Shown here is a 137-nucleotide RNA from Virgisporangium aliadipatigenens, a member of the family "SAM riboswitch aptamer (S box leader)".
RNA sequence: ACCUCAUCCAGAGGGGCUGAGGGAUACGGCCCGUUGACGCCCCGGCAACCCCCGCGCAUCGAUCCUCACUGUCGAGGCCCGCGCGGCAGGUGCCAACUCCGUCCCGGUGCACGGUUCGUGCCCGGGGAAGAUGAGAG
Numbered sequence: 001a002c003c004u005c006a007u008c009c010a011g012a013g014g015g016g017c018u019g020a021g022g023g024a025u026a027c028g029g030c031c032c033g034u035u036g037a038c039g040c041c042c043c044g045g046c047a048a049c050c051c052c053c054g055c056g057c058a059u060c061g062a063u064c065c066u067c068a069c070u071g072u073c074g075a076g077g078c079c080c081g082c083g084c085g086g087c088a089g090g091u092g093c094c095a096a097c098u099c100c101g102u103c104c105c106g107g108u109g110c111a112c113g114g115u116u117c118g119u120g121c122c123c124g125g126g127g128a129a130g131a132u133g134a135g136a137g
Base pairs, nucleotide, nucleotide: 003135004134005133006132007131008130013043014042015041016040017039021032022031023030026102027101028100029099044094045093046092047091049090050089052086053085054084055083056082057081098129103126104125105124106123107122
A search with the family's covariance model found it, with a score of 71 bits. The organism belongs to Virgisporangium, within Bacteria.